[Rfam]
RNA sequence: CCAAAGGCUCUUUUAAGAGCCACCCAUCUAGUCUGUAAGAGAACUG
Numbered sequence: 001c002c003a004a005a006g007g008c009u010c011u012u013u014u015a016a017g018a019g020c021c022a023c024c025c026a027u028c029u030a031g032u033c034u035g036u037a038a039g040a041g042a043a044c045u046g
Stems, first nucleotide, its partner, number of pairs: 006021006